[Rfam]
A member of the RNA family "FMN riboswitch aptamer (RFN element)" from Veillonella sp. HPA0037, 116 nucleotides long. The RFN element is a highly conserved domain that is found frequently in the 5'-untranslated regions of prokaryotic mRNAs that encode for flavin mononucleotide (FMN) biosynthesis and transport proteins. Its family is annotated with FMN binding in the Gene Ontology. The source organism's lineage runs through Bacteria, Bacillati, Negativicutes, Veillonellales and Veillonella. The match comes from Rfam's covariance-model search (106 bits).

RNA sequence: AUAAGUCUUUGGGGAUAGGUGAAAUUCCUUACCGGCGGUUAUAGUCCGCGAGCUAUAUGGCAUGAAUCGGUGCAAUUCCGAUACCGACAGUAGAGUCUGGAUGAGAAAAGACAAUA
Numbered sequence: 001a002u003a004a005g006u007c008u009u010u011g012g013g014g015a016u017a018g019g020u021g022a023a024a025u026u027c028c029u030u031a032c033c034g035g036c037g038g039u040u041a042u043a044g045u046c047c048g049c050g051a052g053c054u055a056u057a058u059g060g061c062a063u064g065a066a067u068c069g070g071u072g073c074a075a076u077u078c079c080g081a082u083a084c085c086g087a088c089a090g091u092a093g094a095g096u097c098u099g100g101a102u103g104a105g106a107a108a109a110g111a112c113a114a115u116a
Base pairs, nucleotide, nucleotide: 005112006111007110008109009108010107017029018028019027031096032095033086034085035049036048037047038046044084045083054060066082067081068080069079070078088099089098090097